Source information:
A member of the RNA family "BsrC" from Sporosarcina pasteurii, 88 nucleotides long. A reference for the family is Saito et al. (2008), "Novel small RNA-encoding genes in the intergenic regions of Bacillus subtilis", Gene.
RNA sequence: CUUACCUUAAACAACGUAAGCCCUACCUACUCUUACGUCCUUACGACCCCUAAGUCGCGCCAGUGUGAAUAAGAAUCUUCAAAAACAU
Numbered sequence: 001c002u003u004a005c006c007u008u009a010a011a012c013a014a015c016g017u018a019a020g021c022c023c024u025a026c027c028u029a030c031u032c033u034u035a036c037g038u039c040c041u042u043a044c045g046a047c048c049c050c051u052a053a054g055u056c057g058c059g060c061c062a063g064u065g066u067g068a069a070u071a072a073g074a075a076u077c078u079u080c081a082a083a084a085a086c087a088u
Stems, first nucleotide, its partner, number of pairs: 036067002040063002042059001044057004